[Rfam]
RNA sequence: UUGCAAUGUAGAUGUUUGGGUUCUGGCUGGAGCCUGGGCUCUGAGACCCUCCCCCACUGCGGGGUCUCAGAGCACAGGCUUCAGCCUGAGCCCGAAUCUCUACACUGCAAUUUU
Number, nucleotide and partner (000 for none) at each position: 001u000002u000003g000004c000005a000006a000007u000008g000009u000010a101011g100012a099013u000014g097015u096016u095017u000018g093019g092020g000021u090022u089023c088024u000025g086026g085027c084028u083029g082030g081031a080032g079033c078034c077035u076036g075037g000038g073039c072040u071041c070042u069043g068044a067045g066046a065047c064048c063049c062050u061051c000052c000053c000054c000055c000056a000057c000058u000059g000060c000061g050062g049063g048064g047065u046066c045067u044068c043069a042070g041071a040072g039073c038074a000075c036076a035077g034078g033079c032080u031081u030082c029083a028084g027085c026086c025087u000088g023089a022090g021091c000092c019093c018094g000095a016096a015097u014098c000099u012100c011101u010102a000103c000104a000105c000106u000107g000108c000109a000110a000111u000112u000113u000114u000
The family of this 114-nucleotide RNA sequence from Chrysemys picta is "mraW RNA". Rfam classes the family as a cis-regulatory element. Taxonomically the source falls in Chrysemys picta (Eukaryota, Vertebrata, Tetrapoda, Chrysemys).